[Rfam]
RNA sequence: CGCCAUCAUCAAGAGAAGGGCUGGCGCCCUCGCCAACCUGCCGGCCGGGCAAGGUGGUUUCCGCAUUCAGGGAUGUGGCUGACGCGCUUUUUUGAAAGACGCAUUGGCAAUCAAGCGGUUAGGC
Numbered sequence: 001c002g003c004c005a006u007c008a009u010c011a012a013g014a015g016a017a018g019g020g021c022u023g024g025c026g027c028c029c030u031c032g033c034c035a036a037c038c039u040g041c042c043g044g045c046c047g048g049g050c051a052a053g054g055u056g057g058u059u060u061c062c063g064c065a066u067u068c069a070g071g072g073a074u075g076u077g078g079c080u081g082a083c084g085c086g087c088u089u090u091u092u093u094g095a096a097a098g099a100c101g102c103a104u105u106g107g108c109a110a111u112c113a114a115g116c117g118g119u120u121a122g123g124c
Stems, first nucleotide, its partner, number of pairs: 007075004015031001017030005032058003037054003040050003044120001046118001078108004

The family of this 124-nucleotide RNA from Roseibium sp. RKSG952 is "SAM-I/IV (S-adenosyl methionine) riboswitch aptamer". Its family is annotated with regulation of gene expression and S-adenosylmethionine metabolic process in the Gene Ontology. The source organism's lineage runs through Bacteria, Pseudomonadati, Alphaproteobacteria, Hyphomicrobiales and Roseibium. The family's consensus secondary structure is taken from published work.